Rfam assigns this 110-nucleotide RNA sequence from Elaeis guineensis to the family "Small nucleolar RNA snoR100". Lineage of the source: Eukaryota > Tracheophyta > Euphyllophyta > Mesangiospermae > Elaeis. It scores 60 bits against the family's covariance model. For this family Rfam cites "Experimental RNomics: identification of 140 candidates for small non-messenger RNAs in the plant Arabidopsis thaliana" (Marker et al., Curr Biol, 2002). Rfam classes the family as an H/ACA-box small nucleolar RNA. The base pairs follow the family's consensus structure, which was predicted with WAR.
RNA sequence: GGAAGAAGGAAACAUGGUAAGGUAAAUGGAAAUGAAAGAUGGUUCCAUUGGUUUGCUCGCGCUGAUGCCCCCGGGCUUUGAUGUAGCGAGGUUGGAUGCGACCCACAUCC
Number, nucleotide and partner (000 for none) at each position: 001g000002g000003a000004a000005g000006a000007a000008g000009g000010a000011a000012a000013c000014a023015u022016g000017g000018u000019a000020a000021g000022g015023u014024a000025a000026a000027u000028g000029g000030a000031a000032a000033u000034g000035a000036a000037a000038g000039a000040u000041g093042g092043u091044u090045c000046c000047a000048u000049u000050g000051g082052u081053u080054u000055g076056c075057u074058c000059g000060c000061g000062c000063u000064g000065a000066u000067g000068c000069c000070c000071c000072c000073g000074g057075g056076c055077u000078u000079u000080g053081a052082u051083g000084u000085a000086g000087c000088g000089a000090g044091g043092u042093u041094g000095g000096a000097u000098g000099c000100g000101a000102c000103c000104c000105a000106c000107a000108u000109c000110c000